Annotation
This 145-nucleotide RNA sequence from Miscanthus lutarioriparius belongs to the Rfam family "Small nucleolar RNA snoR74". Rfam links the family to the GO terms RNA processing and nucleolus. Rfam 15.1 lists 1,404 matches to the family in 223 species. Pairs were carried over by alignment from the consensus structure, which was predicted with WAR. The source organism's lineage runs through Eukaryota, Tracheophyta, Liliopsida, Poaceae and Miscanthus. By type it is an H/ACA-box small nucleolar RNA.

[Rfam]
RNA sequence: AAAAAAGCAGGAUGCUGUGCUAUAUACAAGCAGUAUCCCCGUAAACUUUAGGAACACCAUGAUCAUCGUUAUUGGGUGAACCGCUGGUCCUGUCCAUGUGUUGGACAACUCCAUGUCAAUUGGUUCAGUAAAUGAUGGCACAUUU
Number, nucleotide and partner (000 for none) at each position: 001a000002a000003a000004a000005a048006a047007g046008c000009a000010g000011g037012a036013u000014g034015c033016u032017g031018u000019g000020c000021u000022a000023u000024a000025u000026a000027c000028a000029a000030g000031c017032a016033g015034u014035a000036u012037c011038c000039c000040c000041g000042u000043a000044a000045a000046c007047u006048u005049u000050a000051g000052g000053a000054a000055c000056a000057c000058c000059a000060u000061g000062a000063u138064c137065a136066u135067c134068g133069u132070u131071a000072u000073u000074g000075g000076g000077u127078g126079a125080a124081c123082c122083g121084c000085u000086g000087g000088u000089c000090c000091u000092g000093u000094c000095c000096a000097u000098g000099u000100g000101u000102u000103g000104g000105a000106c000107a000108a000109c000110u000111c000112c000113a000114u000115g000116u000117c000118a000119a000120u000121u083122g082123g081124u080125u079126c078127a077128g000129u000130a000131a070132a069133u068134g067135a066136u065137g064138g063139c000140a000141c000142a000143u000144u000145u000